[Rfam]
RNA: MIR319 microRNA precursor family
RNA sequence: CAGAAAUGGGAGUUCCUUACAGUCCAAAGCGCCGAUUCGACGACUUAACUUCGUGCUGUUUUGGACUGAAGGGAGCUCCUACUUCUU
Numbered sequence: 001c002a003g004a005a006a007u008g009g010g011a012g013u014u015c016c017u018u019a020c021a022g023u024c025c026a027a028a029g030c031g032c033c034g035a036u037u038c039g040a041c042g043a044c045u046u047a048a049c050u051u052c053g054u055g056c057u058g059u060u061u062u063g064g065a066c067u068g069a070a071g072g073g074a075g076c077u078c079c080u081a082c083u084u085c086u087u
Base pairs, nucleotide, nucleotide: 007081008080009079010078011077012076013075014074015073016072017071018070021067022066024064025063026062027061028060